[Rfam]
RNA: Small nucleolar RNA Z107/R87
RNA sequence: GAUCACAGUGAUGACUCCAUAAAAUUCAAGCUCAACAGACCGUAGGUCAGGGCUUUCUCUUUCAGAGAUUGCUUUGCGUGUCGAUAACCCCGCUGAACUGAGUGAUC
Numbered sequence: 001g002a003u004c005a006c007a008g009u010g011a012u013g014a015c016u017c018c019a020u021a022a023a024a025u026u027c028a029a030g031c032u033c034a035a036c037a038g039a040c041c042g043u044a045g046g047u048c049a050g051g052g053c054u055u056u057c058u059c060u061u062u063c064a065g066a067g068a069u070u071g072c073u074u075u076g077c078g079u080g081u082c083g084a085u086a087a088c089c090c091c092g093c094u095g096a097a098c099u100g101a102g103u104g105a106u107c
Stems, first nucleotide, its partner, number of pairs: 001107006
Dot-bracket structure: ((((((...............................................................................................))))))